[Rfam]
RNA sequence: UUGCGCAAGUGCUGUGUAAUUCAGCAAUGUUCGCAAUCGGCUGCUGCACCUGGGGCGUUAAAGUUAUUCACAGAAUCACUGCCCGGACAUGAGUCCACUGCGAUCCGCUCAAUCAGGCGGAUUGCGGCCACCGCCCCCACCGGGGUCGCGCUGGCCCCCGGGCUGCACACUGCCCAGAAGGCGGCGUGAGGUGAGCCGACGUCACAAGCGUCGAGCAGGGACAGAGUUCGAGAGAGGAGGCCGACGGGUCUCCUU
Numbered sequence: 001u002u003g004c005g006c007a008a009g010u011g012c013u014g015u016g017u018a019a020u021u022c023a024g025c026a027a028u029g030u031u032c033g034c035a036a037u038c039g040g041c042u043g044c045u046g047c048a049c050c051u052g053g054g055g056c057g058u059u060a061a062a063g064u065u066a067u068u069c070a071c072a073g074a075a076u077c078a079c080u081g082c083c084c085g086g087a088c089a090u091g092a093g094u095c096c097a098c099u100g101c102g103a104u105c106c107g108c109u110c111a112a113u114c115a116g117g118c119g120g121a122u123u124g125c126g127g128c129c130a131c132c133g134c135c136c137c138c139a140c141c142g143g144g145g146u147c148g149c150g151c152u153g154g155c156c157c158c159c160g161g162g163c164u165g166c167a168c169a170c171u172g173c174c175c176a177g178a179a180g181g182c183g184g185c186g187u188g189a190g191g192u193g194a195g196c197c198g199a200c201g202u203c204a205c206a207a208g209c210g211u212c213g214a215g216c217a218g219g220g221a222c223a224g225a226g227u228u229c230g231a232g233a234g235a236g237g238a239g240g241c242c243g244a245c246g247g248g249u250c251u252c253c254u255u
Base pairs, nucleotide, nucleotide: 002011003010004009043056044055045054076194077193078192079191080190081163082162083161084160085096086095087094088093100125101124102123103122104121107118108117109116126156127155128154129153130152133146134145135144136143137142166188167187168186170184171183172182173181174180195216196215197213198212199211200210201209202208234255235254236253237252239250240249241248242247
A member of the RNA family "Pseudomonas sRNA P24" from Pseudomonas rhizosphaerae, 255 nucleotides long. Rfam's curators write: This small RNA (sRNA) was computationally identified in the genome of the opportunistic pathogen Pseudomonas aeruginosa and its expression verified by Northern blot analysis. P24 is conserved across several Pseudomonas species and in Azotobacter vinelandii. It appears to be consistently located between a hypothetical protein gene and a transcriptional regulator gene (AsnC family) in the genomes of all these species. P24 has a predicted Rho independent terminator at the 3' end but the function of P24 is unknown. Lineage of the source: Bacteria > Pseudomonadota > Pseudomonadales > Pseudomonadaceae > Pseudomonas. It scores 217 bits against the family's covariance model. Pairs were carried over by alignment from the consensus structure, which was predicted with RNAalifold. The literature on the family includes a 2006 paper in Nucleic Acids Res by Livny et al., "Identification of 17 Pseudomonas aeruginosa sRNAs and prediction of sRNA-encoding genes in 10 diverse pathogens using the bioinformatic tool sRNAPredict2".